Background
A member of the RNA family "Mammalian CPEB3 ribozyme" from Alligator sinensis, 73 nucleotides long. It scores 45 bits against the family's covariance model. Rfam links the family to the GO term RNA nuclease activity. Rfam's curators write: The mammalian CPEB3 ribozyme is a self cleaving RNA located in the second intron of the CPEB3 gene which belongs to a family of genes regulating messenger RNA polyadenylation. This ribozyme is highly conserved and found only in mammals. The CPEB3 ribozyme is structurally and biochemically related to the human hepatitis delta virus (HDV) ribozyme and the HDV ribozyme is proposed to have arisen from the human transcriptome. There is currently only one other known self cleaving ribozyme in mammals, the CoTC motif.
[Rfam]
RNA sequence: AAUGCUACAUAAGCCAUAACAGAAGCACUCACAGCAUGGCCUGUCAGAUUCCAAUGAAUCUGCAAAUUCUGCU
Numbered sequence: 001a002a003u004g005c006u007a008c009a010u011a012a013g014c015c016a017u018a019a020c021a022g023a024a025g026c027a028c029u030c031a032c033a034g035c036a037u038g039g040c041c042u043g044u045c046a047g048a049u050u051c052c053a054a055u056g057a058a059u060c061u062g063c064a065a066a067u068u069c070u071g072c073u
Base pairs, nucleotide, nucleotide: 013040014039015038018073020071021070022069023068024067025037045062046061047060048059049058050057051056